The family of this 84-nucleotide RNA sequence from Pan troglodytes is "mir-548 microRNA precursor family". The base pairs follow the family's consensus structure, which was predicted with WAR.

RNA sequence: GAAUAUGUUGGUGCAAAAGUAAUCGUGGUCUUUGCCAUUGAAAGUAAUGGCAAAGACCACGAUUACUUUUGCACCAACCUGUAU
Numbered sequence: 001g002a003a004u005a006u007g008u009u010g011g012u013g014c015a016a017a018a019g020u021a022a023u024c025g026u027g028g029u030c031u032u033u034g035c036c037a038u039u040g041a042a043a044g045u046a047a048u049g050g051c052a053a054a055g056a057c058c059a060c061g062a063u064u065a066c067u068u069u070u071g072c073a074c075c076a077a078c079c080u081g082u083a084u
Stems, first nucleotide, its partner, number of pairs: 001084001003082003007078034